[Rfam]
RNA sequence: GAGAAAAACAUGAUUGAGUGCAGUGUCGAUGACAAUAACACUAUAAAUUAAGCAUCUACCUGAGAUGAGAGUGAAACUUCAUCAACGCUGCACUCAAUGAUGUUUCUC
Numbered sequence: 001g002a003g004a005a006a007a008a009c010a011u012g013a014u015u016g017a018g019u020g021c022a023g024u025g026u027c028g029a030u031g032a033c034a035a036u037a038a039c040a041c042u043a044u045a046a047a048u049u050a051a052g053c054a055u056c057u058a059c060c061u062g063a064g065a066u067g068a069g070a071g072u073g074a075a076a077c078u079u080c081a082u083c084a085a086c087g088c089u090g091c092a093c094u095c096a097a098u099g100a101u102g103u104u105u106c107u108c
Base pairs, nucleotide, nucleotide: 006105007104008103009102010101011100013098014097015096016095017094018093019092020091021090022089023088024087025086026085028083030081031080032079
RNA: MIR397 microRNA precursor family